[Rfam]
RNA sequence: GCGCAGGCUUUGUCGAGUGGUUACUUCGUAAGUACAGAAUUUGCGUUUCGGCAACUGCGUUAAAGACCACUGACACAAUCCUGCGUUUUU
Numbered sequence: 001g002c003g004c005a006g007g008c009u010u011u012g013u014c015g016a017g018u019g020g021u022u023a024c025u026u027c028g029u030a031a032g033u034a035c036a037g038a039a040u041u042u043g044c045g046u047u048u049c050g051g052c053a054a055c056u057g058c059g060u061u062a063a064a065g066a067c068c069a070c071u072g073a074c075a076c077a078a079u080c081c082u083g084c085g086u087u088u089u090u
Stems, first nucleotide, its partner, number of pairs: 002085006012074004017070004026066002029063001
RNA: Vault RNA
Organism: Stegodyphus mimosarum